The family of this 284-nucleotide sequence from Corythaeola cristata is "ryfA RNA". The organism belongs to Corythaeola, within Eukaryota. This family consists of a number of bacterial RNA genes of 305 bases in length. The ryfA RNA gene is present in E. coli, Shigella flexneri and Salmonella species where it is found between the ydaN and dbpA genes. The function of this RNA is unknown. The match comes from Rfam's covariance-model search (103 bits). A reference for the family is Wassarman et al. (2001), "Identification of novel small RNAs using comparative genomics and microarrays", Genes Dev. Rfam classes the family as a small RNA.
RNA sequence: UCGUCCCUUUCCGCCAUCUCGCACAUGGGCACCGGUCCCGGGAAAGGUGUCUUCAUAACCGUAAAUCAGGUUCUUCCAGAACUUGUGUCUGCCGGAAUAUCACCGGUGGUGAACGGUGGAGCGGUUAGUUUGCAGGGACCGCAUAAUGAAACGCUAUCUGUGUAUCGCGUUCAUUGUCGCCAGCGUUUUUGUGGUAAGAAGUGACGAGCCAACCCUGCUCGUUGCGCUUACGUCAUUCACGCAGGACAAGUAGCGUUAAGGCCGCCAUCAGGGCGGCCUUUUUU
Numbered sequence: 001u002c003g004u005c006c007c008u009u010u011c012c013g014c015c016a017u018c019u020c021g022c023a024c025a026u027g028g029g030c031a032c033c034g035g036u037c038c039c040g041g042g043a044a045a046g047g048u049g050u051c052u053u054c055a056u057a058a059c060c061g062u063a064a065a066u067c068a069g070g071u072u073c074u075u076c077c078a079g080a081a082c083u084u085g086u087g088u089c090u091g092c093c094g095g096a097a098u099a100u101c102a103c104c105g106g107u108g109g110u111g112a113a114c115g116g117u118g119g120a121g122c123g124g125u126u127a128g129u130u131u132g133c134a135g136g137g138a139c140c141g142c143a144u145a146a147u148g149a150a151a152c153g154c155u156a157u158c159u160g161u162g163u164a165u166c167g168c169g170u171u172c173a174u175u176g177u178c179g180c181c182a183g184c185g186u187u188u189u190u191g192u193g194g195u196a197a198g199a200a201g202u203g204a205c206g207a208g209c210c211a212a213c214c215c216u217g218c219u220c221g222u223u224g225c226g227c228u229u230a231c232g233u234c235a236u237u238c239a240c241g242c243a244g245g246a247c248a249a250g251u252a253g254c255g256u257u258a259a260g261g262c263c264g265c266c267a268u269c270a271g272g273g274c275g276g277c278c279u280u281u282u283u284u
Stems, first nucleotide, its partner, number of pairs: 007046006014028004029036002059183001067085007088120007098111005121142006129136001143177007152167002155164003185251002189249004258281001259279008